This 72-nucleotide sequence from Microcebus murinus belongs to the Rfam family "Small nucleolar RNA SNORD113/SNORD114 family". The imprinted human domain at 14q32 contains two clusters of tandemly repeated small nucleolar RNAs named 14q(I) and 14q(II) snoRNAs. These two clusters are named SNORD113 and SNORD114 respectively in the HGNC approved gene symbol nomenclature. The snoRNAs found in both clusters are clearly related and are represented here by a single family. These snoRNAs are intron encoded and are processed from the tissue-specific non-coding human MEG8 RNA, which lies downstream of the imprinted genes DLK1 and GTL2. snoRNAs 14q(I) and 14q(II) differ from previously identified C/D box snoRNAs in their expression profiles and lack of complementarity to rRNA and snRNA. Homologues of these snoRNAs are found in the imprinted non-coding mouse transcript Rian, and in the rat non-coding Bsr (brain-specific repetitive) RNA. Lineage of the source: Eukaryota > Opisthokonta > Teleostomi > Mammalia > Microcebus. By type it is a C/D-box small nucleolar RNA.
RNA sequence: UGGGUCAGUGAUGACGCCUGGUGGCGUGUGAGCCCUGGAUGAUGAAUACGUAUCUGGAACUCUGAGAUCCAA
Numbered sequence: 001u002g003g004g005u006c007a008g009u010g011a012u013g014a015c016g017c018c019u020g021g022u023g024g025c026g027u028g029u030g031a032g033c034c035c036u037g038g039a040u041g042a043u044g045a046a047u048a049c050g051u052a053u054c055u056g057g058a059a060c061u062c063u064g065a066g067a068u069c070c071a072a
Stems, first nucleotide, its partner, number of pairs: 002070005